[Rfam]
RNA sequence: UCCAUCGCGAGGUGGAAUCUGAAGGAAGCCGCAGGCAAAAUCCCGGUCCGACGAACAGAAACCGCAUGAGGCAGUCUCAUCCGGGCGAGAAGGCCACUAUCUUCAAAGCCCGAUAGCCAUCCGGGAGGGUGGGGCUGUAGAUGCGGCGGGUAGAUGGGAGGAAGGUCACGCGCA
Numbered sequence: 001u002c003c004a005u006c007g008c009g010a011g012g013u014g015g016a017a018u019c020u021g022a023a024g025g026a027a028g029c030c031g032c033a034g035g036c037a038a039a040a041u042c043c044c045g046g047u048c049c050g051a052c053g054a055a056c057a058g059a060a061a062c063c064g065c066a067u068g069a070g071g072c073a074g075u076c077u078c079a080u081c082c083g084g085g086c087g088a089g090a091a092g093g094c095c096a097c098u099a100u101c102u103u104c105a106a107a108g109c110c111c112g113a114u115a116g117c118c119a120u121c122c123g124g125g126a127g128g129g130u131g132g133g134g135c136u137g138u139a140g141a142u143g144c145g146g147c148g149g150g151u152a153g154a155u156g157g158g159a160g161g162a163a164g165g166u167c168a169c170g171c172g173c174a
Base pairs, nucleotide, nucleotide: 001016002015003014004013005012006011030172031171032170035166036165041159042158043157044156045155046151047150048149049148050147062146063145064144065143066142071138072137073136075134076133077132078131079130080129081128083111084110085109086108089104090103091102092101
A member of the RNA family "Group II catalytic intron D1-D4-3" from Desulfuromonas sp. DDH964, 174 nucleotides long. Lineage of the source: Bacteria > Pseudomonadati > Thermodesulfobacteriota > Desulfuromonadales > Desulfuromonas. On this family, see Chu et al., EMBO J 2001: "Control of branch-site choice by a group II intron". The family has 406 seed sequences and 4,274 matches in Rfam 15.1. Group II introns are found in rRNA, tRNA and mRNA of organelles in fungi, plants and protists, and also in mRNA in bacteria. The base pairs follow the family's consensus structure.